[Rfam]
RNA: Alphaproteobacteria transfer-messenger RNA
Organism: Alkalicaulis satelles
RNA sequence: CGCCUUUCAUCUGCGGUCAGGACCCCUUAUAUUCCAUUUUGUCCGCUUCGGCGGUCUAUGGCGAUAAACGCGCGUGUAAUAACCAGACCGGACCCGGGUGCGAAUCCCGGCGGCUCCACCAAAUUCCCGCUCGUUGGGCGGCAUGAGGGGCCGACUAGCAUCGACGGAUGGCUAAAGGCGUAGCUUUCGCCCGAAUGGGCUUCGUUACCAGCCCACUCAAAGUAGUUGCCAACGACAACUAUGCUGAAGAGGUCGCUCUCGCUGCGUAGCAGCGCGUGCAUCUCGCACUUUAAGCCCUGACCUCUAGCAAGGUCAGGCGGGGUUCGGGGGGCGCCUGGCAACAGAAGCCCCCCACU
Numbered sequence: 001c002g003c004c005u006u007u008c009a010u011c012u013g014c015g016g017u018c019a020g021g022a023c024c025c026c027u028u029a030u031a032u033u034c035c036a037u038u039u040u041g042u043c044c045g046c047u048u049c050g051g052c053g054g055u056c057u058a059u060g061g062c063g064a065u066a067a068a069c070g071c072g073c074g075u076g077u078a079a080u081a082a083c084c085a086g087a088c089c090g091g092a093c094c095c096g097g098g099u100g101c102g103a104a105u106c107c108c109g110g111c112g113g114c115u116c117c118a119c120c121a122a123a124u125u126c127c128c129g130c131u132c133g134u135u136g137g138g139c140g141g142c143a144u145g146a147g148g149g150g151c152c153g154a155c156u157a158g159c160a161u162c163g164a165c166g167g168a169u170g171g172c173u174a175a176a177g178g179c180g181u182a183g184c185u186u187u188c189g190c191c192c193g194a195a196u197g198g199g200c201u202u203c204g205u206u207a208c209c210a211g212c213c214c215a216c217u218c219a220a221a222g223u224a225g226u227u228g229c230c231a232a233c234g235a236c237a238a239c240u241a242u243g244c245u246g247a248a249g250a251g252g253u254c255g256c257u258c259u260c261g262c263u264g265c266g267u268a269g270c271a272g273c274g275c276g277u278g279c280a281u282c283u284c285g286c287a288c289u290u291u292a293a294g295c296c297c298u299g300a301c302c303u304c305u306a307g308c309a310a311g312g313u314c315a316g317g318c319g320g321g322g323u324u325c326g327g328g329g330g331g332c333g334c335c336u337g338g339c340a341a342c343a344g345a346a347g348c349c350c351c352c353c354a355c356u
Stems, first nucleotide, its partner, number of pairs: 041056001043054003060191005070184002072181004084170002088167003094110005111153007192204004198214002320336004326353006